[Rfam]
RNA sequence: CGUGUGUGCAUUGUAGUUGCAUUGCAUGAAUUUUAACUAUGCAAUACUUCUGCAGUGCAACACUCG
Numbered sequence: 001c002g003u004g005u006g007u008g009c010a011u012u013g014u015a016g017u018u019g020c021a022u023u024g025c026a027u028g029a030a031u032u033u034u035a036a037c038u039a040u041g042c043a044a045u046a047c048u049u050c051u052g053c054a055g056u057g058c059a060a061c062a063c064u065c066g
Stems, first nucleotide, its partner, number of pairs: 001066002004063001007059010019047001021045007
This 66-nucleotide RNA from Cotesia congregata belongs to the Rfam family "mir-33 microRNA precursor family".